[Rfam]
RNA sequence: UUCUCCAAUGAACACACUUCAGGGCCUUAAAUAAGACCCAAAGAAUAAAUUUUGGAACCUUUACUUUUCAGUAAAGGUA
Numbered sequence: 001u002u003c004u005c006c007a008a009u010g011a012a013c014a015c016a017c018u019u020c021a022g023g024g025c026c027u028u029a030a031a032u033a034a035g036a037c038c039c040a041a042a043g044a045a046u047a048a049a050u051u052u053u054g055g056a057a058c059c060u061u062u063a064c065u066u067u068u069c070a071g072u073a074a075a076g077g078u079a
Base pairs, nucleotide, nucleotide: 022039023038024037026035027034028033057078058077059076060075061074062073063072064071065070